A member of the RNA family "MIR2118 microRNA precursor family" from Triticum aestivum, 167 nucleotides long. A search with the family's covariance model found it, with a score of 112 bits.
[Rfam]
RNA sequence: CAAAGGAAUAGGAAGAAAUGAGCAUCUAAUAGUAUUGGGCAUGGGAACAUGGAGGAAGGCCUAAACUAGUGUGUCCCUGUCCAACUAGGGUCCAAUAUUUGUUUGGAAUUUUCCCAAUGCCUCCCAUGCCUAUUGUUCUUAGGUGUUCCUUCCUCUCCCAUAUGGUA
Numbered sequence: 001c002a003a004a005g006g007a008a009u010a011g012g013a014a015g016a017a018a019u020g021a022g023c024a025u026c027u028a029a030u031a032g033u034a035u036u037g038g039g040c041a042u043g044g045g046a047a048c049a050u051g052g053a054g055g056a057a058g059g060c061c062u063a064a065a066c067u068a069g070u071g072u073g074u075c076c077c078u079g080u081c082c083a084a085c086u087a088g089g090g091u092c093c094a095a096u097a098u099u100u101g102u103u104u105g106g107a108a109u110u111u112u113c114c115c116a117a118u119g120c121c122u123c124c125c126a127u128g129c130c131u132a133u134u135g136u137u138c139u140u141a142g143g144u145g146u147u148c149c150u151u152c153c154u155c156u157c158c159c160a161u162a163u164g165g166u167a
Base pairs, nucleotide, nucleotide: 011156012155013154015152016151017150020148021147022146025143026142027141028140029139031137032136033135034134036132037131038130039129040128041127042126043125044124045123046122048119049118050117052115054114055113056112057111058110059109
On this family, see Xue et al., Nucleic Acids Res 2009: "Characterization and expression profiles of miRNAs in rice seeds". Rfam links the family to the GO terms miRNA-mediated post-transcriptional gene silencing and RISC complex.